Shown here is a 64-nucleotide RNA sequence from Pipistrellus kuhlii, a member of the family "mir-9242 microRNA precursor family". The family's consensus secondary structure was predicted with RNAalifold. The source organism's lineage runs through Eukaryota, Chordata, Craniata, Boreoeutheria and Pipistrellus. The match comes from Rfam's covariance-model search (63 bits).
RNA sequence: GGCCUCCCUCUGCUGGGCAAUGGAUCACAGGGCUCUGUCAUUGAUGGCUCUGCAGAGGGCGGCC
Numbered sequence: 001g002g003c004c005u006c007c008c009u010c011u012g013c014u015g016g017g018c019a020a021u022g023g024a025u026c027a028c029a030g031g032g033c034u035c036u037g038u039c040a041u042u043g044a045u046g047g048c049u050c051u052g053c054a055g056a057g058g059g060c061g062g063c064c
Base pairs, nucleotide, nucleotide: 001064002063003062004061006059007058008057009056010055011054012053013052015050016049017048018047020045021044023042024041025040027038028037029036030035